[Rfam]
RNA sequence: CGAGAUCUUCGUGUACCCCACGAGCCUGCCAAGUGGCCUACUGGGGAAUGGAGAAGAUCGAG
Numbered sequence: 001c002g003a004g005a006u007c008u009u010c011g012u013g014u015a016c017c018c019c020a021c022g023a024g025c026c027u028g029c030c031a032a033g034u035g036g037c038c039u040a041c042u043g044g045g046g047a048a049u050g051g052a053g054a055a056g057a058u059c060g061a062g
Base pairs, nucleotide, nucleotide: 004059005058006057007056008055009054016046017045018044019043020042024037025036026035
Dot-bracket structure: ...((((((......(((((...(((........)))....))))).......))))))...
A member of the RNA family "Trypanosomatid snoRNA TB9Cs4H1" from Trypanosoma vivax, 62 nucleotides long. The organism belongs to Trypanosoma vivax, within Eukaryota. Rfam 15.1 lists 39 matches to the family in 15 species.